[Rfam]
Nucleotides: 075
Stems, first nucleotide, its partner, number of pairs: 005071002008068002012064006019057004025052005031046001032044002
Number, partner (000 for none) and nucleotide at each position: 001000g002000c003000u004000a005071a006070g007000a008068g009067u010000u011000u012064u013063u014062c015061u016060u017059c018000g019057u020056c021055a022054a023000c024000g025052c026051g027050g028049c029048u030000a031046u032044g033043u034000u035000g036000a037000u038000g039000u040000a041000g042000a043033a044032c045000c046031a047000u048029a049028g050027c051026u052025g053000c054022u055021u056020g057019g058000c059017g060016a061015a062014g063013a064012a065000u066000u067009g068008c069000c070006c071005u072000u073000u074000c075000a